[Rfam]
RNA: L17-Actino-Proteobacteria ribosomal protein leader
RNA sequence: ACGGGCACAGUGCCCGUGCGCCCGCUGCGGUACCUGGUACGGCCGCAGUCGG
Numbered sequence: 001a002c003g004g005g006c007a008c009a010g011u012g013c014c015c016g017u018g019c020g021c022c023c024g025c026u027g028c029g030g031u032a033c034c035u036g037g038u039a040c041g042g043c044c045g046c047a048g049u050c051g052g
Stems, first nucleotide, its partner, number of pairs: 001017007022052003025048007